[Rfam]
RNA sequence: UUAAAUACUUUGAACAGAUUUCGCUUUAUUGUAAAGUACACAGAGAGCUUAUGUUGCUGAGAUUUAAGCACUUAAAUAAAGGGAUUCACGUCUGUGAGUUAUGUUUCUGAACGUUUUUAUUAUUAGGAAAUGUCGGUUUAUUCCGUUAUCUUGUGAGUUAUUUUAUAAAACUUGUAGAGUUUUGCUAUGUGAAUAGUAAAUAAAAACGGGGUGGAACCGCGACUUUGUCGUCCUCUUA
Numbered sequence: 001u002u003a004a005a006u007a008c009u010u011u012g013a014a015c016a017g018a019u020u021u022c023g024c025u026u027u028a029u030u031g032u033a034a035a036g037u038a039c040a041c042a043g044a045g046a047g048c049u050u051a052u053g054u055u056g057c058u059g060a061g062a063u064u065u066a067a068g069c070a071c072u073u074a075a076a077u078a079a080a081g082g083g084a085u086u087c088a089c090g091u092c093u094g095u096g097a098g099u100u101a102u103g104u105u106u107c108u109g110a111a112c113g114u115u116u117u118u119a120u121u122a123u124u125a126g127g128a129a130a131u132g133u134c135g136g137u138u139u140a141u142u143c144c145g146u147u148a149u150c151u152u153g154u155g156a157g158u159u160a161u162u163u164u165a166u167a168a169a170a171c172u173u174g175u176a177g178a179g180u181u182u183u184g185c186u187a188u189g190u191g192a193a194u195a196g197u198a199a200a201u202a203a204a205a206a207c208g209g210g211g212u213g214g215a216a217c218c219g220c221g222a223c224u225u226u227g228u229c230g231u232c233c234u235c236u237u238a
Stems, first nucleotide, its partner, number of pairs: 007099002015094004024081005036071002047069005102132007134145003158203006208235004219231005
Shown here is a 238-nucleotide sequence from Apilactobacillus ozensis, a member of the family "T-box leader".
Lineage of the source: Bacteria > Bacillati > Bacilli > Lactobacillales > Apilactobacillus ozensis.
The family's consensus secondary structure is taken from published work.
It is annotated as a cis-regulatory leader.
About the family: Uncharged tRNA acts as the effector for transcription antitermination of genes in the T-box leader family.